[Rfam]
RNA: mir-2 microRNA precursor family
Organism: Octopus sinensis
RNA sequence: UAAGUCACCAAAGUGGUGGUGAUGUGUUCUCACUAAACCAUAUCACAGCCAGCUUUGAUGAGCUCAA
Numbered sequence: 001u002a003a004g005u006c007a008c009c010a011a012a013g014u015g016g017u018g019g020u021g022a023u024g025u026g027u028u029c030u031c032a033c034u035a036a037a038c039c040a041u042a043u044c045a046c047a048g049c050c051a052g053c054u055u056u057g058a059u060g061a062g063c064u065c066a067a
Stems, first nucleotide, its partner, number of pairs: 005061003009057005014051004019046004025042003